[Rfam]
RNA sequence: GGCUGGUCUGAAGGUAGUGAGUUAUCUUAAUUGAUUGCUUAGUCACAGAUCAAACCUCCUUGUUCUACUCUUUCUCUCCUCCUCACUAGCGCACUUGACUAAAAA
Numbered sequence: 001g002g003c004u005g006g007u008c009u010g011a012a013g014g015u016a017g018u019g020a021g022u023u024a025u026c027u028u029a030a031u032u033g034a035u036u037g038c039u040u041a042g043u044c045a046c047a048g049a050u051c052a053a054a055c056c057u058c059c060u061u062g063u064u065c066u067a068c069u070c071u072u073u074c075u076c077u078c079c080u081c082c083u084c085a086c087u088a089g090c091g092c093a094c095u096u097g098a099c100u101a102a103a104a105a
Base pairs, nucleotide, nucleotide: 004101005100006099007098008097010096011095014092015091016087017086018085019084020083021082037070041066042065

The record is a 105-nucleotide RNA from Cebus imitator, which matches "Y RNA" in Rfam. The organism belongs to Cebus, within Eukaryota. It scores 42 bits against the family's covariance model. Rfam's curators write: Y RNAs are components of the Ro ribonucleoprotein particle (Ro RNP), in association with Ro60 and La proteins. The base pairs follow the family's consensus structure, which is taken from published work.